Rfam assigns this 87-nucleotide RNA from Oncorhynchus kisutch to the family "mir-22 microRNA precursor family".
RNA sequence: CGUUGCUUCACAGUCGUUCUUCACUGGCUAGCUUUAUGUCUCACUCCCCUCUGUAAAGCUGCCAGUUGAAGAGCUGUUGUGGGUAAC
Numbered sequence: 001c002g003u004u005g006c007u008u009c010a011c012a013g014u015c016g017u018u019c020u021u022c023a024c025u026g027g028c029u030a031g032c033u034u035u036a037u038g039u040c041u042c043a044c045u046c047c048c049c050u051c052u053g054u055a056a057a058g059c060u061g062c063c064a065g066u067u068g069a070a071g072a073g074c075u076g077u078u079g080u081g082g083g084u085a086a087c
Stems, first nucleotide, its partner, number of pairs: 005084003010080003017073006026063003030060007